About this RNA
The record is a 112-nucleotide RNA sequence from Vallitalea guaymasensis, which matches "FMN riboswitch aptamer (RFN element)" in Rfam. Taxonomically the source falls in Vallitalea (Bacteria, Bacillati, Bacillota, Lachnospirales). About the family: The RFN element is a highly conserved domain that is found frequently in the 5'-untranslated regions of prokaryotic mRNAs that encode for flavin mononucleotide (FMN) biosynthesis and transport proteins. This element is a metabolite-dependent riboswitch that directly binds FMN in the absence of proteins. In Bacillus subtilis, the riboswitch most likely controls gene expression by causing premature transcription termination within the 5' untranslated region of the ribDEAHT operon and precluding access to the ribosome-binding site of ypaA mRNA.The FMN riboswitch structure, reported in present an FMN-bound six-stem junction, adopts a butterfly-like scaffold, stapled together by opposingly directed but nearly identically folded peripheral domains.
RNA sequence: AGAAACCUUCAGGGCAGGGUGUAAUUCCCGACCGGCGGUAAAGUCCGCGAGUGAAAACUGACUUGGUGAAAUUCCAAGACCGACAGUAAAGUCUGGAUGAGAGAAGGAAAAU
Numbered sequence: 001a002g003a004a005a006c007c008u009u010c011a012g013g014g015c016a017g018g019g020u021g022u023a024a025u026u027c028c029c030g031a032c033c034g035g036c037g038g039u040a041a042a043g044u045c046c047g048c049g050a051g052u053g054a055a056a057a058c059u060g061a062c063u064u065g066g067u068g069a070a071a072u073u074c075c076a077a078g079a080c081c082g083a084c085a086g087u088a089a090a091g092u093c094u095g096g097a098u099g100a101g102a103g104a105a106g107g108a109a110a111a112u
Base pairs, nucleotide, nucleotide: 006107007106008105009104010103017029018028019027031092032091033082034081035048036047037046038045043080044079051058052057062078063077064076065075066074084095085094086093